[Rfam]
RNA sequence: GUGAGGAGGCGCCGGUAGGGAGGAAGUCCAUAAUUAAAAUCGGCGCCGACGACGUGCCGCCGAGCGUAGGCGAGGGAGCGAUACAUUGA
Dot-bracket structure: .......((((((..((.(((.....))).)).........))))))........((..((..((....))..))..))..........
Numbered sequence: 001g002u003g004a005g006g007a008g009g010c011g012c013c014g015g016u017a018g019g020g021a022g023g024a025a026g027u028c029c030a031u032a033a034u035u036a037a038a039a040u041c042g043g044c045g046c047c048g049a050c051g052a053c054g055u056g057c058c059g060c061c062g063a064g065c066g067u068a069g070g071c072g073a074g075g076g077a078g079c080g081a082u083a084c085a086u087u088g089a
Stems, first nucleotide, its partner, number of pairs: 008047006016032002019029003056079002060075002064071002